[Rfam]
Small nucleolar RNA SNORA9: a 132-nucleotide RNA from Crocuta crocuta. By type it is an H/ACA-box small nucleolar RNA. Rfam describes the family as follows. ACA9 is a member of the H/ACA class of snoRNA that guide the sites of modification of uridines to pseudouridines. Rfam 15.1 lists 1,202 matches to the family in 518 species.

RNA sequence: CUGUAAGCCUCCAGCGUGUCUGGGCCUGGGGUAGCCCCGUGCAUUCCUACAGUGUUGGCAAGAACAUUGGGAAAUGGUUUGAGGCCUUGCCCUGCUCGGUCCAGAGCAAGGUUAUAGAAAUUUAGAACAGCU
Numbered sequence: 001c002u003g004u005a006a007g008c009c010u011c012c013a014g015c016g017u018g019u020c021u022g023g024g025c026c027u028g029g030g031g032u033a034g035c036c037c038c039g040u041g042c043a044u045u046c047c048u049a050c051a052g053u054g055u056u057g058g059c060a061a062g063a064a065c066a067u068u069g070g071g072a073a074a075u076g077g078u079u080u081g082a083g084g085c086c087u088u089g090c091c092c093u094g095c096u097c098g099g100u101c102c103a104g105a106g107c108a109a110g111g112u113u114a115u116a117g118a119a120a121u122u123u124a125g126a127a128c129a130g131c132u
Base pairs, nucleotide, nucleotide: 003059004058006056007055008054017043018042019041022037023036024035025034072123073122074121085111086110087109088108089107090106092104093103094102